The record is a 138-nucleotide sequence from Pseudomonas saudiphocaensis, which matches "Ribosomal S15 leader" in Rfam. Rfam links the family to the GO term regulation of translation, ncRNA-mediated. For this family Rfam cites "Pseudoknot and translational control in the expression of the S15 ribosomal protein" (Benard et al., Biochimie, 1996). The base pairs follow the family's consensus structure, which is taken from published work. Its Rfam clan is "Ribosomal Protein S15 Leader clan".
[Rfam]
RNA sequence: GAGGAUGGCUGUUGGCAGGCACGGUCAGCCCUCUUUUUAAACACGGGAUAUUCCCGGCCUGUUCACUGUAAGGAGCCCAUCAUGGCACUUAGCGUUGAAGAAAAAGCCCAGAUCGUUAACGAGUACAAGCAAGCUGAA
Number, nucleotide and partner (000 for none) at each position: 001g000002a000003g000004g000005a000006u000007g059008g058009c057010u056011g055012u000013u000014g000015g000016c000017a000018g000019g000020c000021a000022c000023g000024g000025u000026c000027a000028g000029c000030c000031c000032u000033c000034u000035u000036u000037u000038u000039a000040a000041a000042c000043a000044c000045g000046g000047g000048a000049u000050a000051u000052u000053c000054c000055c011056g010057g009058c008059c007060u000061g000062u000063u000064c000065a000066c000067u000068g000069u092070a000071a090072g089073g088074a000075g086076c000077c000078c000079a000080u000081c000082a000083u000084g000085g000086c075087a000088c073089u072090u071091a000092g069093c000094g000095u000096u000097g000098a000099a000100g000101a000102a000103a000104a000105a000106g000107c000108c000109c000110a000111g000112a000113u000114c000115g000116u000117u000118a000119a000120c000121g000122a000123g000124u000125a000126c000127a000128a000129g000130c000131a000132a000133g000134c000135u000136g000137a000138a000
About the family: The E. coli Ribosomal S15 gene 5' UTR can form two alternative structures. One that is a series of three hairpins, The other includes a pseudoknot. This structure causes translational regulation of the S15 protein. The alignment of this family contains only the final two hairpins which are conserved in other species, and also includes the complete region that forms the alternate structures.